[Rfam]
RNA: pan motif
Organism: Planococcus lenghuensis
RNA sequence: AGGGCGGUAUCCGGCUGGAACCGCACCGGUUUUAUUCAUAUUCAAAAUGCAAAACUGAAUAAUUCUGCCUUGAUCUGAUAUGACAGGGACGGAGGA
Number, nucleotide and partner (000 for none) at each position: 001a000002g027003g026004g024005c023006g022007g021008u020009a000010u019011c018012c000013g000014g000015c000016u000017g000018g011019a010020a008021c007022c006023g005024c004025a000026c003027c002028g000029g000030u000031u000032u000033u000034a000035u000036u000037c000038a000039u000040a000041u000042u000043c000044a000045a000046a000047a000048u000049g000050c000051a000052a000053a000054a000055c000056u000057g000058a000059a000060u000061a000062a000063u000064u000065c092066u091067g090068c088069c087070u086071u085072g084073a000074u083075c082076u000077g000078a000079u000080a000081u000082g075083a074084c072085a071086g070087g069088g068089a000090c067091g066092g065093a000094g000095g000096a000